Lysine riboswitch aptamer: a 181-nucleotide RNA sequence from Photobacterium proteolyticum.
Lineage of the source: Bacteria > Pseudomonadati > Vibrionales > Vibrionaceae > Photobacterium.
Rfam links the family to the GO term lysine biosynthetic process.
The base pairs follow the family's consensus structure, which is taken from published work.
A search with the family's covariance model found it, with a score of 90 bits.
From the family's description: Riboswitches are metabolite binding domains within certain messenger RNAs that serve as precision sensors for their corresponding targets.
[Rfam]
RNA sequence: AAAAACAGAAGAGGAGCGUUACCCAGGUAUCUAUGUUGCGGGGCCCCACCCCAAGGCAGCAUAAGAGAGGGGGAGUAACGCCGAGAUACUGCCGGACAGGGGGCCUGCAGUAUCGGCCACGAAGGUUGAAUCCUUCUGGCUGUCACCUUUCUCGAGUGAAAGGUGGGGAGCUUCUGGUUGU
Numbered sequence: 001a002a003a004a005a006c007a008g009a010a011g012a013g014g015a016g017c018g019u020u021a022c023c024c025a026g027g028u029a030u031c032u033a034u035g036u037u038g039c040g041g042g043g044c045c046c047c048a049c050c051c052c053a054a055g056g057c058a059g060c061a062u063a064a065g066a067g068a069g070g071g072g073g074a075g076u077a078a079c080g081c082c083g084a085g086a087u088a089c090u091g092c093c094g095g096a097c098a099g100g101g102g103g104c105c106u107g108c109a110g111u112a113u114c115g116g117c118c119a120c121g122a123a124g125g126u127u128g129a130a131u132c133c134u135u136c137u138g139g140c141u142g143u144c145a146c147c148u149u150u151c152u153c154g155a156g157u158g159a160a161a162g163g164u165g166g167g168g169a170g171c172u173u174c175u176g177g178u179u180g181u
Base pairs, nucleotide, nucleotide: 006176007175008174009173010172011171016081017080018079019078020077021076022075024073030066031065032063033062034061035060036059037058085114086113087112088111089110090109091108092107094105095104115141116140117139118138121136122135123134124133125132143166144165145164146163147162148161149160